A member of the RNA family "Small nucleolar RNA SNORD17" from Grus americana, 243 nucleotides long.
The match comes from Rfam's covariance-model search (110 bits).
From the family's description: The snoRNA HBI-43 belongs to the C/D family of snoRNAs, guiding 2'O-ribose methylation at position U3797 of the 28S rRNA. Pseudouridylation in position U3797 is predicted to be guided by the H/ACA snoRNA ACA48.
Rfam links the family to the GO terms nucleolus and RNA processing.

[Rfam]
RNA sequence: GUGAGGUGAUGAUGAAGUUUAUCCAUUCUCUGAGUGCAGUGGUGCUGCCCUCCUGCAGCACCCCGAUUCCUGUUCUAGGGUCUGGGUGCUGUGCAGCCUCCAGAGACCCUCCAGUCUCCCAAUGGAGAGCUGCUGUGGUGUGUGGCUGGCUGCCUGCCUGCAGGAGUGAAGUGGUGCUGGCAGGGUUGGAGCCCCUCUUUGGGGGCUCCAUCCCCACCGAGAUGACGGAUGAUGUCUGAUCAC
Numbered sequence: 001g002u003g004a005g006g007u008g009a010u011g012a013u014g015a016a017g018u019u020u021a022u023c024c025a026u027u028c029u030c031u032g033a034g035u036g037c038a039g040u041g042g043u044g045c046u047g048c049c050c051u052c053c054u055g056c057a058g059c060a061c062c063c064c065g066a067u068u069c070c071u072g073u074u075c076u077a078g079g080g081u082c083u084g085g086g087u088g089c090u091g092u093g094c095a096g097c098c099u100c101c102a103g104a105g106a107c108c109c110u111c112c113a114g115u116c117u118c119c120c121a122a123u124g125g126a127g128a129g130c131u132g133c134u135g136u137g138g139u140g141u142g143u144g145g146c147u148g149g150c151u152g153c154c155u156g157c158c159u160g161c162a163g164g165a166g167u168g169a170a171g172u173g174g175u176g177c178u179g180g181c182a183g184g185g186u187u188g189g190a191g192c193c194c195c196u197c198u199u200u201g202g203g204g205g206c207u208c209c210a211u212c213c214c215c216a217c218c219g220a221g222a223u224g225a226c227g228g229a230u231g232a233u234g235u236c237u238g239a240u241c242a243c
Base pairs, nucleotide, nucleotide: 010242011241012240013239017235018234020232023228024227027225028224030221031220034217035216039181040180042178043176044175045174046173047172048171050168051165052164053163054162055161056160057159059088060087061086062085063084065082068080069079070078071077093153094152095151096150097149098148106139107138112132113131114130115129117127119125120124183214184213185212187210188209189208190207192205193204194203195202